[Rfam]
RNA sequence: GAGCUUCUGAUGUUGAUGAUACUGCAUCAUGAACUGAUGGAGAGGAAUGAGAGGCCAUCCGUUCUUCAUGCACUUACUUCAGGAUUGAAAGA
Number, nucleotide and partner (000 for none) at each position: 001g000002a000003g000004c000005u000006u000007c000008u000009g000010a000011u000012g000013u000014u000015g000016a000017u000018g000019a000020u000021a000022c000023u072024g071025c070026a069027u068028c000029a066030u000031g064032a063033a062034c061035u000036g059037a058038u057039g056040g055041a000042g000043a000044g000045g000046a000047a000048u000049g000050a000051g000052a000053g000054g000055c040056c039057a038058u037059c036060c000061g034062u033063u032064c031065u000066u029067c000068a027069u026070g025071c024072a023073c000074u000075u000076a000077c000078u000079u000080c000081a000082g000083g000084a000085u000086u000087g000088a000089a000090a000091g000092a000

The record is a 92-nucleotide RNA sequence from Pleuronectes platessa, which matches "mir-217 microRNA precursor family" in Rfam. The family has 28 seed sequences and 698 matches in Rfam 15.1. On this family, see Lim et al., Science 2003: "Vertebrate microRNA genes". The organism belongs to Pleuronectes, within Eukaryota.